[Rfam]
RNA sequence: CACAAGCAUCAAGAAUCUCAUUAUGAGAUACCCUCCGAGCAAAAAAGCCACGGUGGUUUAGUAUGCGGGCAGUCUGUCAAAAACAAUUAACCUC
Numbered sequence: 001c002a003c004a005a006g007c008a009u010c011a012a013g014a015a016u017c018u019c020a021u022u023a024u025g026a027g028a029u030a031c032c033c034u035c036c037g038a039g040c041a042a043a044a045a046a047g048c049c050a051c052g053g054u055g056g057u058u059u060a061g062u063a064u065g066c067g068g069g070c071a072g073u074c075u076g077u078c079a080a081a082a083a084c085a086a087u088u089a090a091c092c093u094c
Stems, first nucleotide, its partner, number of pairs: 006066004015029006030057003035053003039048002044088002068078004

This 94-nucleotide sequence from Vicingus serpentipes belongs to the Rfam family "SAM-I/IV (S-adenosyl methionine) riboswitch aptamer". It scores 45 bits against the family's covariance model. Its family is annotated with regulation of gene expression and S-adenosylmethionine metabolic process in the Gene Ontology.